The family of this 59-nucleotide sequence from Danio rerio is "U7 small nuclear RNA".
About the family: Animal histone pre-mRNAs are spliced by a different mechanism than nuclear pre-mRNAs and self-splicing introns. This processing involves the U7 snRNP, which contains only one RNA species: U7. The 5' end of U7 RNA is thought to base-pair to a conserved spacer element downstream of the cleavage site in histone pre-mRNA. This family contains a number of annotated U7 pseudogenes.
Taxonomically the source falls in Danio (Eukaryota, Neopterygii, Ostariophysi, Otophysi).
A reference for the family is Marz et al. (2007), "U7 snRNAs: a computational survey", Genomics Proteomics Bioinformatics.
The match comes from Rfam's covariance-model search (55 bits).
[Rfam]
RNA sequence: UAAUGAAAAUAGCUCUUUUAGUAUUUGUCCAGUAGGUUUCCUAUAAAAAGGAAGCCCAU
Dot-bracket structure: ..................................((((((((......))))))))...